[Rfam]
RNA: Betaproteobacteria toxic small RNA
Organism: Oxalobacteraceae bacterium OM1
RNA sequence: UGUCUCCUCCAACUCUCCUUGAAUUGGAUUUCGCCCGCAAACCGCAAGGUCUGCGGGCUUUUCUUU
Numbered sequence: 001u002g003u004c005u006c007c008u009c010c011a012a013c014u015c016u017c018c019u020u021g022a023a024u025u026g027g028a029u030u031u032c033g034c035c036c037g038c039a040a041a042c043c044g045c046a047a048g049g050u051c052u053g054c055g056g057g058c059u060u061u062u063c064u065u066u
Stems, first nucleotide, its partner, number of pairs: 008028005014022002033058007